RNA sequence: CAGUUAAAAAGCUCGUAGUUGAAAUUGAGGUAGAUGUAAUUUGAAAUCUUAUGAUUGAUUAUUACUAUACCUUUUCUUCGUGUAUAUUAGUGAGGGACUUAAUUGUUUUUUACUAGUAACCGAAAUGUUUACUUUGAAAAAAUUAGAGUGCUUAAAGCAGGCUUACGCUUGUAUAUUGUUGCAUGGAAUAAUAAAAUAGGACUUUGGUUUUAUUUUGUUUGGUUUUCUUAACUAAAGUAAUGAUUAAAAGAGACUGCCGGGGGGCAUAUGUAUGCUGGGUGCUAGAGGGUGGAAAUUCUUUAGACCAUCAGCAGAACAAACUACUGCGAAAGCAUUUGCCCAAGAAAUGUUUUUCAUAAAUCAAAGAACGAAAGUCAGAGGGAUCGAAGACGAUCAGAUACCCGUCCCUAGUUUCUGACCAUAAAACUAUGCCCACCUGACAGUUUAGUAAAAGAUGAAAUUAUUUUCUUUCUUUACUAGAAGUCACCCGGGAAACCAAAAUUCUUUGGGUUCCGGGGGGAAGUAUGGGUUGCAAAAGCUGGAAACUUUAAAGGAAUG
Number, nucleotide and partner (000 for none) at each position: 001c515002a000003g513004u000005u000006a000007a000008a000009a512010a000011g369012c000013u367014c366015g000016u000017a000018g361019u360020u359021g000022a000023a000024a000025u000026u000027g000028a000029g000030g000031u000032a000033g000034a000035u000036g000037u000038a000039a000040u000041u000042u000043g000044a000045a000046a000047u000048c000049u000050u000051a000052u000053g000054a000055u000056u000057g000058a000059u000060u000061a000062u000063u000064a000065c000066u000067a000068u000069a000070c000071c000072u000073u000074u000075u000076c000077u000078u000079c000080g000081u000082g000083u000084a000085u000086a000087u000088u000089a000090g000091u000092g000093a000094g000095g000096g000097a000098c000099u000100u000101a000102a000103u000104u000105g000106u000107u000108u000109u000110u000111u000112a000113c000114u000115a000116g000117u000118a000119a000120c000121c000122g000123a000124a000125a000126u000127g000128u000129u000130u000131a000132c000133u000134u000135u000136g000137a000138a000139a000140a000141a000142a000143u000144u000145a000146g000147a000148g000149u000150g000151c000152u000153u000154a000155a000156a000157g000158c000159a000160g000161g000162c000163u000164u000165a000166c000167g000168c000169u000170u000171g000172u000173a000174u000175a000176u000177u000178g000179u000180u000181g000182c000183a000184u000185g000186g000187a000188a000189u000190a000191a000192u000193a000194a000195a000196a000197u000198a000199g000200g000201a000202c000203u000204u000205u000206g000207g000208u000209u000210u000211u000212a000213u000214u000215u000216u000217g000218u000219u000220u000221g000222g000223u000224u000225u000226u000227c000228u000229u000230a000231a000232c000233u000234a000235a000236a000237g000238u000239a000240a000241u000242g000243a000244u000245u000246a000247a000248a000249a000250g355251a354252g353253a352254c000255u347256g000257c000258c344259g000260g000261g000262g341263g340264g339265c338266a337267u000268a335269u318270g317271u000272a000273u313274g312275c311276u310277g309278g000279g308280u307281g306282c000283u000284a000285g298286a297287g296288g000289g000290u000291g000292g000293a000294a000295a000296u287297u286298c285299u000300u000301u000302a000303g000304a000305c000306c281307a280308u279309c277310a276311g275312c274313a273314g000315a000316a000317c270318a269319a000320a000321c000322u000323a000324c000325u000326g333327c332328g000329a000330a000331a000332g327333c326334a000335u268336u000337u266338g265339c264340c263341c262342a000343a000344g258345a000346a000347a255348u000349g000350u000351u000352u253353u252354u251355c250356a000357u000358a000359a020360a019361u018362c000363a000364a000365a000366g014367a013368a000369c011370g000371a000372a000373a000374g419375u418376c417377a416378g415379a414380g000381g000382g000383a000384u000385c411386g000387a000388a000389g406390a405391c404392g403393a000394u000395c000396a000397g000398a000399u000400a000401c000402c000403c392404g391405u390406c389407c000408c000409u000410a000411g385412u000413u000414u379415c378416u377417g376418a375419c374420c000421a000422u000423a000424a000425a000426a000427c000428u000429a000430u000431g511432c510433c509434c000435a503436c000437c000438u486439g485440a484441c000442a000443g000444u000445u480446u479447a478448g477449u476450a475451a474452a473453a000454g472455a471456u000457g000458a000459a000460a000461u000462u000463a000464u000465u000466u000467u000468c000469u000470u000471u455472c454473u452474u451475u450476a449477c448478u447479a446480g445481a000482a000483g000484u440485c439486a438487c000488c000489c000490g497491g496492g000493a000494a000495a000496c491497c490498a000499a000500a000501a000502u000503u435504c000505u000506u000507u000508g000509g433510g432511u431512u009513c003514c000515g001516g000517g549518g548519g547520g000521a000522a000523g000524u000525a000526u000527g540528g539529g000530u537531u536532g000533c000534a000535a000536a531537a530538g000539c528540u527541g000542g000543a000544a000545a000546c000547u519548u518549u517550a000551a000552a000553g000554g000555a000556a000557u000558g000
RNA: Eukaryotic small subunit ribosomal RNA, nucleotides 614 to 1171